[Rfam]
RNA sequence: AAUAUGCAGUGAGGAAUUUUGAAUAAAUUAACACAUGUUAGACUUCGGAGAUUUUCGAAAGAAAGUCAAUGAGAUAGACAAUUCAUUUUACCUGAGCAGAAU
Number, nucleotide and partner (000 for none) at each position: 001a102002a000003u100004a000005u098006g097007c096008a000009g000010u000011g000012a000013g000014g000015a000016a000017u000018u000019u000020u000021g000022a000023a000024u000025a000026a000027a000028u000029u000030a000031a000032c000033a000034c000035a000036u000037g000038u000039u000040a000041g000042a000043c000044u000045u000046c000047g000048g000049a000050g067051a066052u065053u064054u063055u062056c000057g000058a000059a000060a000061g000062a055063a054064a053065g052066u051067c050068a000069a000070u000071g000072a000073g000074a000075u000076a000077g000078a000079c000080a000081a000082u000083u000084c000085a000086u000087u000088u000089u000090a000091c000092c000093u000094g000095a000096g007097c006098a005099g000100a003101a000102u001